Rfam assigns this 83-nucleotide sequence from Betta splendens to the family "mir-15 microRNA precursor family". It scores 60 bits against the family's covariance model. About the family: This family represents the related mir-15a and mir-15b sequences. In humans miR-15a and miR-16 are clustered within 0.5 kb at 13q14. NCBI's taxonomy places the organism under Eukaryota, Metazoa, Teleostei, Acanthomorphata, Betta. Rfam links the family to the GO terms RISC complex and miRNA-mediated post-transcriptional gene silencing.
RNA sequence: CCUUAAACUGCUAUAGCAGCGCAUCAUGGUUUGAAAUAAUGUGGAAAAAGCAAACCAUUAUUUGCUGCUUUAGAAUUUUAAGG
Numbered sequence: 001c002c003u004u005a006a007a008c009u010g011c012u013a014u015a016g017c018a019g020c021g022c023a024u025c026a027u028g029g030u031u032u033g034a035a036a037u038a039a040u041g042u043g044g045a046a047a048a049a050g051c052a053a054a055c056c057a058u059u060a061u062u063u064g065c066u067g068c069u070u071u072a073g074a075a076u077u078u079u080a081a082g083g
Stems, first nucleotide, its partner, number of pairs: 001083006013071001015069007023061002026058008